[Rfam]
Annotation:
The family of this 85-nucleotide sequence from Clostridium luticellarii is "ZMP/ZTP riboswitch aptamer (pfl RNA motif)". The organism belongs to Clostridium, within Bacteria. Rfam 15.1 lists 3,295 matches to the family in 2,545 species. A search with the family's covariance model found it, with a score of 56 bits. The base pairs follow the family's consensus structure, which is taken from published work. For this family Rfam cites "An ancient riboswitch class in bacteria regulates purine biosynthesis and one-carbon metabolism" (Kim et al., Mol Cell, 2015). Its family is annotated with one-carbon metabolic process and regulation of purine nucleotide biosynthetic process in the Gene Ontology.
RNA sequence: AAGUGAUCAUGUGACUGGCGGAAAUGGAGUUUACCAUGGGAAGCAUGAUUGAAUAGAAGUUGUAUCGACCGCCUGGGUAAUUAAU
Numbered sequence: 001a002a003g004u005g006a007u008c009a010u011g012u013g014a015c016u017g018g019c020g021g022a023a024a025u026g027g028a029g030u031u032u033a034c035c036a037u038g039g040g041a042a043g044c045a046u047g048a049u050u051g052a053a054u055a056g057a058a059g060u061u062g063u064a065u066c067g068a069c070c071g072c073c074u075g076g077g078u079a080a081u082u083a084a085u
Stems, first nucleotide, its partner, number of pairs: 004051009015040002017073005024037004063079004